Source information:
The record is a 152-nucleotide sequence from Paenibacillus xylanivorans, which matches "FMN riboswitch aptamer (RFN element)" in Rfam. A search with the family's covariance model found it, with a score of 114 bits.
[Rfam]
RNA sequence: UAGGAUCUUCGGGGUAGGGUGCAAUUCCCAACCGGCGGUGAUGUUCUUCGGAACCAGCCCGCGACUCGCUGUUUGACCCGAUGUGGGGAUUCAGCGACUGACUUGGUGUGACUCCAAGGCCGACGGUACAGUCCGGAUGAGAGAAGAUCAAC
Number, nucleotide and partner (000 for none) at each position: 001u000002a000003g000004g149005a148006u147007c146008u145009u144010c143011g000012g000013g000014g000015u000016a000017g029018g028019g027020u000021g000022c000023a000024a000025u000026u000027c019028c018029c017030a000031a132032c131033c122034g121035g062036c061037g060038g059039u000040g000041a000042u000043g000044u000045u000046c000047u000048u000049c000050g000051g000052a000053a000054c000055c000056a000057g120058c119059c038060c037061g036062c035063g000064a000065c000066u097067c096068g095069c094070u093071g092072u000073u000074u000075g000076a000077c000078c000079c000080g000081a000082u000083g000084u000085g000086g000087g000088g000089a000090u000091u000092c071093a070094g069095c068096g067097a066098c000099u000100g000101a000102c118103u117104u116105g115106g114107u000108g000109u000110g000111a000112c000113u000114c106115c105116a104117a103118g102119g058120c057121c034122g033123a000124c135125g134126g133127u000128a000129c000130a000131g032132u031133c126134c125135g124136g000137a000138u000139g000140a000141g000142a000143g010144a009145a008146g007147a006148u005149c004150a000151a000152c000